[Rfam]
RNA sequence: UGCCCUUAGGGCGAUGGAGUCCGCCUUAACCGCCCGCUUCGGGCUGAUGACUCCUACCGGGUU
Numbered sequence: 001u002g003c004c005c006u007u008a009g010g011g012c013g014a015u016g017g018a019g020u021c022c023g024c025c026u027u028a029a030c031c032g033c034c035c036g037c038u039u040c041g042g043g044c045u046g047a048u049g050a051c052u053c054c055u056a057c058c059g060g061g062u063u
Base pairs, nucleotide, nucleotide: 010025011024012023013022016054017053018052019051020050021049032044033043034042035041

Record summary: The family of this 63-nucleotide sequence from Thermus aquaticus is "Fluoride riboswitch aptamer (crcB RNA motif)".